[Rfam]
RNA sequence: GUAUCAAAAGGGAAUGAAGUUCUCCCACGGGCAACCGGAACCGCUGAUUCGGGCUAAUGACUUCUGCGAGUUU
Numbered sequence: 001g002u003a004u005c006a007a008a009a010g011g012g013a014a015u016g017a018a019g020u021u022c023u024c025c026c027a028c029g030g031g032c033a034a035c036c037g038g039a040a041c042c043g044c045u046g047a048u049u050c051g052g053g054c055u056a057a058u059g060a061c062u063u064c065u066g067c068g069a070g071u072u073u
Base pairs, nucleotide, nucleotide: 010026011025012024013023016064017063018062019061020060021059043054044053045052
Rfam assigns this 73-nucleotide RNA from Acetanaerobacterium elongatum to the family "Fluoride riboswitch aptamer (crcB RNA motif)". Rfam 15.1 lists 2,293 matches to the family in 1,982 species. It scores 41 bits against the family's covariance model.